[Rfam]
Rfam assigns this 114-nucleotide RNA sequence from Vombatus ursinus to the family "Potassium channel RNA editing signal".
Rfam describes the family as follows. This family represents a group of sequences related to the human potassium channel Kv1.1 hairpin element which directs the efficient modification of an adenosine to inosine by an adenosine deaminase acting on RNA (ADAR). The ADAR modification causes an isoleucine/valine recoding event which lies in the ion-conducting pore of the potassium channel.
The source organism's lineage runs through Eukaryota, Deuterostomia, Euteleostomi, Amniota and Vombatus.
It is annotated as a cis-regulatory element.
The family's consensus secondary structure is taken from published work.
It scores 98 bits against the family's covariance model.
On this family, see Bhalla et al., Nat Struct Mol Biol 2004: "Control of human potassium channel inactivation by editing of a small mRNA hairpin".

RNA sequence: CUGGGUUAUGGGGAUAUGUACCCACAGACUUGGUCAGGGAUGUUAGUGGGGGCUCUGUGUGCUCUGGCUGGAGUGCUGACUAUAGCCAUGCCUGUGCCUGUCAUUGUCAACAAU
Numbered sequence: 001c002u003g004g005g006u007u008a009u010g011g012g013g014a015u016a017u018g019u020a021c022c023c024a025c026a027g028a029c030u031u032g033g034u035c036a037g038g039g040a041u042g043u044u045a046g047u048g049g050g051g052g053c054u055c056u057g058u059g060u061g062c063u064c065u066g067g068c069u070g071g072a073g074u075g076c077u078g079a080c081u082a083u084a085g086c087c088a089u090g091c092c093u094g095u096g097c098c099u100g101u102c103a104u105u106g107u108c109a110a111c112a113a114u
Stems, first nucleotide, its partner, number of pairs: 002113001004111001008107004013102004018097004037077002040074001049063002